[Rfam]
RNA sequence: GCACAAGGUAGAGGUUGCACAGAUUAUGAGUAACCGGGCAGAUGCGGCAGACGCAGAUGAAGCCCGGCAAAAGGGAUUUGUGCCGAAGGGGUCAUUGCUGCGGAUGAUUCCCUGGGUGCAGCUUGAAGAAGGCUGUAACUGUCAUCUGAUAAGAUGGGGCGCUAUCAGUGAU
Number, nucleotide and partner (000 for none) at each position: 001g000002c000003a000004c000005a000006a000007g166008g165009u164010a163011g162012a000013g000014g000015u000016u000017g083018c082019a081020c080021a079022g078023a077024u076025u075026a000027u000028g000029a000030g000031u000032a000033a000034c067035c066036g065037g064038g063039c062040a000041g000042a000043u000044g000045c000046g000047g000048c000049a000050g000051a000052c000053g000054c000055a000056g000057a000058u000059g000060a000061a000062g039063c038064c037065c036066g035067g034068c000069a000070a000071a000072a000073g000074g000075g025076a024077u023078u022079u021080g020081u019082g018083c017084c000085g000086a000087a113088g112089g111090g110091g109092u107093c106094a105095u104096u103097g000098c000099u000100g000101c000102g000103g096104a095105u094106g093107a092108u000109u091110c090111c089112c088113u087114g140115g139116g000117u137118g136119c135120a134121g133122c132123u131124u130125g000126a000127a000128g000129a000130a124131g123132g122133c121134u120135g119136u118137a117138a000139c115140u114141g000142u157143c156144a155145u154146c153147u152148g000149a000150u000151a000152a147153g146154a145155u144156g143157g142158g000159g000160c000161g000162c011163u010164a009165u008166c007167a000168g000169u000170g000171a000172u000
RNA: Lysine riboswitch aptamer
Organism: Shuttleworthella satelles